[Rfam]
RNA: Fluoride riboswitch aptamer (crcB RNA motif)
Organism: Heliobacterium mobile
RNA sequence: CGUGAAUAACGCGAUGGAGUUCGCGGUAAAGCCGUUUAACGGAUGAUGACUCCUACUCGAUU
Numbered sequence: 001c002g003u004g005a006a007u008a009a010c011g012c013g014a015u016g017g018a019g020u021u022c023g024c025g026g027u028a029a030a031g032c033c034g035u036u037u038a039a040c041g042g043a044u045g046a047u048g049a050c051u052c053c054u055a056c057u058c059g060a061u062u
Stems, first nucleotide, its partner, number of pairs: 010025004016053006032042003